[Rfam]
RNA: Small nucleolar RNA snoR97
RNA sequence: CCUUUCUGUUGGGUUUAGAGUCUGAAUAACUCAGAUAUUUUGUGCCUCCAUCAACUUCUUCUCUUUUGAUUAUCUACUGAGAUUGGAGUUAAACUAUGGCACUACAUUC
Dot-bracket structure: .........................................(((((......((((((.((((...............))))..)))))).......))))).......
Numbered sequence: 001c002c003u004u005u006c007u008g009u010u011g012g013g014u015u016u017a018g019a020g021u022c023u024g025a026a027u028a029a030c031u032c033a034g035a036u037a038u039u040u041u042g043u044g045c046c047u048c049c050a051u052c053a054a055c056u057u058c059u060u061c062u063c064u065u066u067u068g069a070u071u072a073u074c075u076a077c078u079g080a081g082a083u084u085g086g087a088g089u090u091a092a093a094c095u096a097u098g099g100c101a102c103u104a105c106a107u108u109c
Stems, first nucleotide, its partner, number of pairs: 042102005053090006060082004